[Rfam]
RNA sequence: CUGGCUCCGGUUCACGUACCCACACGGGUGCGACCCGGCGGCU
Numbered sequence: 001c002u003g004g005c006u007c008c009g010g011u012u013c014a015c016g017u018a019c020c021c022a023c024a025c026g027g028g029u030g031c032g033a034c035c036c037g038g039c040g041g042c043u
Base pairs, nucleotide, nucleotide: 003043004042005041007038008037009036010035015032016031017030018029019028020027021026